[Rfam]
RNA: Bacterial large subunit ribosomal RNA, nucleotides 9 to 565
RNA sequence: AAGAAAGGGCACAAGGCGGAUGCCUUGGCACUGGGCGCCGAAGAAGGACGUGACAAGCUGCGAAAAGCUGCGGGGAGGAGCAAAUAUCCGUUAAUCCGCAGAUAUCCGAAUGGGGGAACCCACCGGUCGUAAUGGGCCGGUAUCCUGCGCUGAAUCUAUAGGCGUAGAGAAGGGAACGAGGGGAACUGAAACAUCUAAGUACCCUUAGGAAGAGAAAGAAAAAUCGAUUUCCCAAGUAGCGGCGAGCGAACGGGAAAGAGCCCAAACCGAAUUCUUAAGGAUUCGGGGUUGCGGACCGUGCAAGAGACUCAAGACACCUAGCCGAACAUACUGGAACGUAUGGACAAAGAGGGUGAAAUUCCCGUAGGCAAAAGGGGACGAGAGCGAGCGCGGCACCAGAGUAGUACCGGACACGUGAAACCCGGUAUGAAGCAGGGAGGCCCACCUCCCAAGGCUAAAUACGACCCAGUGACCGAUAGAGAAUAGUACCGUGAGGGAAAGGUGAAAAGGACCCCGGGAGGGGAGUGAAAGAGAACCUGAAACCUUGUGCUUACAAG
Numbered sequence: 001a002a003g004a005a006a007g008g009g010c011a012c013a014a015g016g017c018g019g020a021u022g023c024c025u026u027g028g029c030a031c032u033g034g035g036c037g038c039c040g041a042a043g044a045a046g047g048a049c050g051u052g053a054c055a056a057g058c059u060g061c062g063a064a065a066a067g068c069u070g071c072g073g074g075g076a077g078g079a080g081c082a083a084a085u086a087u088c089c090g091u092u093a094a095u096c097c098g099c100a101g102a103u104a105u106c107c108g109a110a111u112g113g114g115g116g117a118a119c120c121c122a123c124c125g126g127u128c129g130u131a132a133u134g135g136g137c138c139g140g141u142a143u144c145c146u147g148c149g150c151u152g153a154a155u156c157u158a159u160a161g162g163c164g165u166a167g168a169g170a171a172g173g174g175a176a177c178g179a180g181g182g183g184a185a186c187u188g189a190a191a192c193a194u195c196u197a198a199g200u201a202c203c204c205u206u207a208g209g210a211a212g213a214g215a216a217a218g219a220a221a222a223a224u225c226g227a228u229u230u231c232c233c234a235a236g237u238a239g240c241g242g243c244g245a246g247c248g249a250a251c252g253g254g255a256a257a258g259a260g261c262c263c264a265a266a267c268c269g270a271a272u273u274c275u276u277a278a279g280g281a282u283u284c285g286g287g288g289u290u291g292c293g294g295a296c297c298g299u300g301c302a303a304g305a306g307a308c309u310c311a312a313g314a315c316a317c318c319u320a321g322c323c324g325a326a327c328a329u330a331c332u333g334g335a336a337c338g339u340a341u342g343g344a345c346a347a348a349g350a351g352g353g354u355g356a357a358a359u360u361c362c363c364g365u366a367g368g369c370a371a372a373a374g375g376g377g378a379c380g381a382g383a384g385c386g387a388g389c390g391c392g393g394c395a396c397c398a399g400a401g402u403a404g405u406a407c408c409g410g411a412c413a414c415g416u417g418a419a420a421c422c423c424g425g426u427a428u429g430a431a432g433c434a435g436g437g438a439g440g441c442c443c444a445c446c447u448c449c450c451a452a453g454g455c456u457a458a459a460u461a462c463g464a465c466c467c468a469g470u471g472a473c474c475g476a477u478a479g480a481g482a483a484u485a486g487u488a489c490c491g492u493g494a495g496g497g498a499a500a501g502g503u504g505a506a507a508a509g510g511a512c513c514c515c516g517g518g519a520g521g522g523g524a525g526u527g528a529a530a531g532a533g534a535a536c537c538u539g540a541a542a543c544c545u546u547g548u549g550c551u552u553a554c555a556a557g
Stems, first nucleotide, its partner, number of pairs: 007552010022537001023502002027474002029471007036463002038173002046107003049062003068101007077089003112121003122141007143170002145167007177208001178206005188195002218225002228459001229256005239247002259456004267286007293397002297392005308384003313379001315377001317375003321369003327342005345349001351363003404428007435450005489496002512523004
Dot-bracket structure: ......((((((((((.....(((..(((((((((((((......((((((........))).....(((((((..(((.......))).....)))))))...)))....(((....)))(((((((......))))))).(((((((((.........))))))).)).))...((((((.....((....))......))))).).........((....))..((((((.....((.....))....)))))..((((....(((((((......)))))))......((..(((((......(((..(.(.(((.(((...(((((......)))))..(...).(((.......)))...)))...))).).)..)))...)))))...))......(((((((...........)))))))......(((((......)))))..))))..)..)).))))))).))..............((....))....)).........((((....)))).............).....)))))))))).....